[Rfam]
RNA: Saccharopolyspora sRNA 350
RNA sequence: UUGACCGUGAAGUCCCAGAUGCUCUGCGGGUCGAGCAGCGUCUCGUCGCCGAAGUGGUCGCCGUCGGCCAGCACAUCCAGCGCGGUCUCGUCGCCGUACUCGCCGGGGCCGAACCUGCUCAGCUUCCCGUGCGCGAUGAGGAGGGCCUGAUCGGAAAGGUGCCCGAACUCCACCAGCACGUCGCCCGGUUCGUACUCGCGCUGCUCGAACCGGUCGGCCAGCGCGCUCAGCACCUCCUCGUCGUCGAACCCGCGCAGCAACGGCAGCUCGCGCAGUUCCUGGGGGAUCACCCGCACCGCGGAGCCCGUGGCGGAGAACGUCACGCGCCCGUCGCCAACGGUGUAGGUGAGCCUGCGGUUCACCCGGUACGUGCCACCCUUCGUCUCGACCCAGGGCAACAUCCGCAGCAGCCACCGCGAGGAGAUGCCCUGCAUCUGCGGCACCGACUUGGUCGUCGUCGCCAGCUUGCGCGCGGCCGCCGUGCCGAGGCUCUGUGGCCGCUCGU
Numbered sequence: 001u002u003g004a005c006c007g008u009g010a011a012g013u014c015c016c017a018g019a020u021g022c023u024c025u026g027c028g029g030g031u032c033g034a035g036c037a038g039c040g041u042c043u044c045g046u047c048g049c050c051g052a053a054g055u056g057g058u059c060g061c062c063g064u065c066g067g068c069c070a071g072c073a074c075a076u077c078c079a080g081c082g083c084g085g086u087c088u089c090g091u092c093g094c095c096g097u098a099c100u101c102g103c104c105g106g107g108g109c110c111g112a113a114c115c116u117g118c119u120c121a122g123c124u125u126c127c128c129g130u131g132c133g134c135g136a137u138g139a140g141g142a143g144g145g146c147c148u149g150a151u152c153g154g155a156a157a158g159g160u161g162c163c164c165g166a167a168c169u170c171c172a173c174c175a176g177c178a179c180g181u182c183g184c185c186c187g188g189u190u191c192g193u194a195c196u197c198g199c200g201c202u203g204c205u206c207g208a209a210c211c212g213g214u215c216g217g218c219c220a221g222c223g224c225g226c227u228c229a230g231c232a233c234c235u236c237c238u239c240g241u242c243g244u245c246g247a248a249c250c251c252g253c254g255c256a257g258c259a260a261c262g263g264c265a266g267c268u269c270g271c272g273c274a275g276u277u278c279c280u281g282g283g284g285g286a287u288c289a290c291c292c293g294c295a296c297c298g299c300g301g302a303g304c305c306c307g308u309g310g311c312g313g314a315g316a317a318c319g320u321c322a323c324g325c326g327c328c329c330g331u332c333g334c335c336a337a338c339g340g341u342g343u344a345g346g347u348g349a350g351c352c353u354g355c356g357g358u359u360c361a362c363c364c365g366g367u368a369c370g371u372g373c374c375a376c377c378c379u380u381c382g383u384c385u386c387g388a389c390c391c392a393g394g395g396c397a398a399c400a401u402c403c404g405c406a407g408c409a410g411c412c413a414c415c416g417c418g419a420g421g422a423g424a425u426g427c428c429c430u431g432c433a434u435c436u437g438c439g440g441c442a443c444c445g446a447c448u449u450g451g452u453c454g455u456c457g458u459c460g461c462c463a464g465c466u467u468g469c470g471c472g473c474g475g476c477c478g479c480c481g482u483g484c485c486g487a488g489g490c491u492c493u494g495u496g497g498c499c500g501c502u503c504g505u
Stems, first nucleotide, its partner, number of pairs: 007389002011385002014382001018328001021325002025322002029318001031316002039312004044307002048305001049301003054233002058229001060227001062225003065111004077102001079100002082097005117222003123216001126213002129210002131206001133204003138199001140197001143196002154189001158185003165174001235295001237293001240290002243287003249283004254278001256277003261270002329342004354376001356374002360372003391431007399423001401421001403418003407415001437476002440473001443470001446467001448464005477504002480500002484497003488493001